[Rfam]
RNA sequence: GGCCCAAAUUUGAAGUUGAGUAGAUUGCUAGGGUCAGGUGACCAUAUUAAUCAACUCUACUCCAAGUUUGCGCUC
Numbered sequence: 001g002g003c004c005c006a007a008a009u010u011u012g013a014a015g016u017u018g019a020g021u022a023g024a025u026u027g028c029u030a031g032g033g034u035c036a037g038g039u040g041a042c043c044a045u046a047u048u049a050a051u052c053a054a055c056u057c058u059a060c061u062c063c064a065a066g067u068u069u070g071c072g073c074u075c
Stems, first nucleotide, its partner, number of pairs: 001074003005070005011064002014061003018057004023052001025050003029046002032043004
The family of this 75-nucleotide sequence from Haemonchus placei is "mir-5928 microRNA precursor family". Taxonomically the source falls in Haemonchus (Eukaryota, Opisthokonta, Chromadorea, Trichostrongylidae). Its family is annotated with RISC complex and miRNA-mediated post-transcriptional gene silencing in the Gene Ontology. It scores 60 bits against the family's covariance model.